[Rfam]
Shown here is a 67-nucleotide sequence from Pipistrellus kuhlii, a member of the family "mir-9256 microRNA precursor family". The match comes from Rfam's covariance-model search (82 bits). Its family is annotated with miRNA-mediated post-transcriptional gene silencing and RISC complex in the Gene Ontology.

RNA sequence: AUAUACAUUGAGUGGACAGAUUAUUAUGUGUUCAGAUAUCAUAAUAAUCUGUCCACUCAGUGUGUGU
Numbered sequence: 001a002u003a004u005a006c007a008u009u010g011a012g013u014g015g016a017c018a019g020a021u022u023a024u025u026a027u028g029u030g031u032u033c034a035g036a037u038a039u040c041a042u043a044a045u046a047a048u049c050u051g052u053c054c055a056c057u058c059a060g061u062g063u064g065u066g067u
Base pairs, nucleotide, nucleotide: 004064005063006062007061008060009059010058011057012056013055014054015053016052017051019049020048021047022046023045024044025043026042027041028040